The family of this 62-nucleotide RNA sequence from Pristionchus pacificus is "mir-8364 microRNA precursor family". NCBI's taxonomy places the organism under Eukaryota, Bilateria, Chromadorea, Rhabditida, Pristionchus.
RNA sequence: UCUCCAUUCCGCACACUCUCUCGUCGGCCAGAGCAGACGAGAGAGUAUGCGAAAUGAAGAGA
Numbered sequence: 001u002c003u004c005c006a007u008u009c010c011g012c013a014c015a016c017u018c019u020c021u022c023g024u025c026g027g028c029c030a031g032a033g034c035a036g037a038c039g040a041g042a043g044a045g046u047a048u049g050c051g052a053a054a055u056g057a058a059g060a061g062a
Base pairs, nucleotide, nucleotide: 001060002059003058005056006055007054010051012049013048015046016045017044019042020041021040022039